[Rfam]
RNA sequence: UUGGAAAAAAAAAAAAGAAUAACUUUAUAGUUCCCUUGGCUUUGACUCUGUGCUAGAGCAAUGUCUGUUCUUUUCCUCUGCAUUGAAAGGACUGUUUAUCCUUUUAAAUGUAUUCAUAAAGUCAGCACAUUA
Numbered sequence: 001u002u003g004g005a006a007a008a009a010a011a012a013a014a015a016a017g018a019a020u021a022a023c024u025u026u027a028u029a030g031u032u033c034c035c036u037u038g039g040c041u042u043u044g045a046c047u048c049u050g051u052g053c054u055a056g057a058g059c060a061a062u063g064u065c066u067g068u069u070c071u072u073u074u075c076c077u078c079u080g081c082a083u084u085g086a087a088a089g090g091a092c093u094g095u096u097u098a099u100c101c102u103u104u105u106a107a108a109u110g111u112a113u114u115c116a117u118a119a120a121g122u123c124a125g126c127a128c129a130u131u132a
Stems, first nucleotide, its partner, number of pairs: 002050003006047001010043001015037003022031003055071006077118001079116002081110004085105007
A member of the RNA family "Small nucleolar RNA SNORA22" from Myotis brandtii, 132 nucleotides long. Rfam 15.1 lists 883 matches to the family in 606 species. ACA22 is a member of the H/ACA class of snoRNA that guide the sites of modification of uridines to pseudouridines. Rfam links the family to the GO terms nucleolus and RNA processing.